Shown here is a 101-nucleotide RNA from Peptoclostridium litorale, a member of the family "Glycine riboswitch aptamer". It scores 36 bits against the family's covariance model. This family represents the bacterial glycine riboswitch.
[Rfam]
RNA sequence: AACUCUGAAGAGCUCGACCAAUUGAUAUUUGGUUGACACCGAAGGAGAAAAUGUGUUGUUUAAUAUGCACACUUAAACUCUCAGGUAUAAUAUACAGAGGU
Numbered sequence: 001a002a003c004u005c006u007g008a009a010g011a012g013c014u015c016g017a018c019c020a021a022u023u024g025a026u027a028u029u030u031g032g033u034u035g036a037c038a039c040c041g042a043a044g045g046a047g048a049a050a051a052u053g054u055g056u057u058g059u060u061u062a063a064u065a066u067g068c069a070c071a072c073u074u075a076a077a078c079u080c081u082c083a084g085g086u087a088u089a090a091u092a093u094a095c096a097g098a099g100g101u
Stems, first nucleotide, its partner, number of pairs: 001101001003099005014036008038086003041082002045080003051073001